A member of the RNA family "mir-29 microRNA precursor family" from Acyrthosiphon pisum, 64 nucleotides long. The literature on the family includes a 2001 paper in Cell by Ambros, "microRNAs: tiny regulators with great potential". From the family's description: This family represents the microRNA (miRNA) precursors mir-29. Rfam 15.1 lists 3,328 matches to the family in 787 species. The source organism's lineage runs through Eukaryota, Bilateria, Eumetabola, Aphidoidea and Acyrthosiphon.
RNA sequence: UGGUUUCGUAUUGGUGCAUAGAAGUAUUAAUUUUGUAACUUGUCUAGCACCAUUUGAAACCAGU
Numbered sequence: 001u002g003g004u005u006u007c008g009u010a011u012u013g014g015u016g017c018a019u020a021g022a023a024g025u026a027u028u029a030a031u032u033u034u035g036u037a038a039c040u041u042g043u044c045u046a047g048c049a050c051c052a053u054u055u056g057a058a059a060c061c062a063g064u
Stems, first nucleotide, its partner, number of pairs: 001062008012052005019046004
The base pairs follow the family's consensus structure, which was predicted with PFOLD.